RNA: Small nucleolar RNA SNORA24
RNA sequence: CUCCAUGUAUCUUUGGAAGCUGUCAGAUGUGGCAGUCUCCAUUCCUAGCCAUGGAAGAGUAUAUUCUUGUUUAUUGGCAAAGCUGUCACUCUUUAACUGGUACCAGAUUAUGAUUUGCACAAGUAACAUUU
Numbered sequence: 001c002u003c004c005a006u007g008u009a010u011c012u013u014u015g016g017a018a019g020c021u022g023u024c025a026g027a028u029g030u031g032g033c034a035g036u037c038u039c040c041a042u043u044c045c046u047a048g049c050c051a052u053g054g055a056a057g058a059g060u061a062u063a064u065u066c067u068u069g070u071u072u073a074u075u076g077g078c079a080a081a082g083c084u085g086u087c088a089c090u091c092u093u094u095a096a097c098u099g100g101u102a103c104c105a106g107a108u109u110a111u112g113a114u115u116u117g118c119a120c121a122a123g124u125a126a127c128a129u130u131u
Base pairs, nucleotide, nucleotide: 002055003054004053005052006051007050016040018038020035021034022033023032024031068128069127070126071125074122075121076120077118078117079116080115083106084105085104088101089100090099